[Rfam]
Rfam assigns this 111-nucleotide RNA sequence from Pseudothermotoga thermarum to the family "TPP riboswitch aptamer (THI element)". Pairs were carried over by alignment from the consensus structure, which is taken from published work. A search with the family's covariance model found it, with a score of 80 bits.
RNA sequence: AUCAACAAGCGGGGGAGCUCCUAGUCCGGGGCUGAGAGGAGGGCGGAAGCCCUCGACCCUUUGAACCUGAUCCGGGUAAUGCCGGCGCAGGGAAGCUUGAAACACAGUAAC
Numbered sequence: 001a002u003c004a005a006c007a008a009g010c011g012g013g014g015g016a017g018c019u020c021c022u023a024g025u026c027c028g029g030g031g032c033u034g035a036g037a038g039g040a041g042g043g044c045g046g047a048a049g050c051c052c053u054c055g056a057c058c059c060u061u062u063g064a065a066c067c068u069g070a071u072c073c074g075g076g077u078a079a080u081g082c083c084g085g086c087g088c089a090g091g092g093a094a095g096c097u098u099g100a101a102a103c104a105c106a107g108u109a110a111c
Base pairs, nucleotide, nucleotide: 006099007098008097009096010095011060012059013058014057017032018031019030020029021028039054040053041052042051043050066091067090068089069088072085073084074083075082